[Rfam]
RNA sequence: UUGACUCUGGAGAGCGGUCCCGCAUUGACAGCGGGGUCCACCGAAGGGGUUAGUUCCGUCAGCGGAGCUUAAACUCUCAGGUUACCGGACAGAGGGGCGACA
Numbered sequence: 001u002u003g004a005c006u007c008u009g010g011a012g013a014g015c016g017g018u019c020c021c022g023c024a025u026u027g028a029c030a031g032c033g034g035g036g037u038c039c040a041c042c043g044a045a046g047g048g049g050u051u052a053g054u055u056c057c058g059u060c061a062g063c064g065g066a067g068c069u070u071a072a073a074c075u076c077u078c079a080g081g082u083u084a085c086c087g088g089a090c091a092g093a094g095g096g097g098c099g100a101c102a
Base pairs, nucleotide, nucleotide: 002097005094006093007092008091009090016038017037018036019035020034021033022032023031040082041081042080043078044077047076048075049074053069